[Rfam]
RNA sequence: AGCUUUGCGCAGUGGCGAUAUCGUAACCGAUGAGGUUCUACCGAGGUGCGAUUAUUGCUAGUUGAAAACUUUUACCAAUACCCCGCCAAGACGAUGUGAAAUACCAUCGGCUUAUGGCAAUUUUUGAUAACCCUUACGGGGG
Numbered sequence: 001a002g003c004u005u006u007g008c009g010c011a012g013u014g015g016c017g018a019u020a021u022c023g024u025a026a027c028c029g030a031u032g033a034g035g036u037u038c039u040a041c042c043g044a045g046g047u048g049c050g051a052u053u054a055u056u057g058c059u060a061g062u063u064g065a066a067a068a069c070u071u072u073u074a075c076c077a078a079u080a081c082c083c084c085g086c087c088a089a090g091a092c093g094a095u096g097u098g099a100a101a102u103a104c105c106a107u108c109g110g111c112u113u114a115u116g117g118c119a120a121u122u123u124u125u126g127a128u129a130a131c132c133c134u135u136a137c138g139g140g141g142g
Stems, first nucleotide, its partner, number of pairs: 020052005026047003034042003085118003088113003092109005131142004

U4 spliceosomal RNA: a 142-nucleotide RNA sequence from Melipona quadrifasciata. The match comes from Rfam's covariance-model search (119 bits). NCBI's taxonomy places the organism under Eukaryota, Altocrustacea, Endopterygota, Apocrita, Melipona. Rfam classes the family as a spliceosomal small nuclear RNA. The base pairs follow the family's consensus structure, which is taken from published work. The family is grouped with related families in Rfam's "U4 clan". From the family's description: U4 small nuclear RNA (U4 snRNA) is a component of the major U2-dependent spliceosome.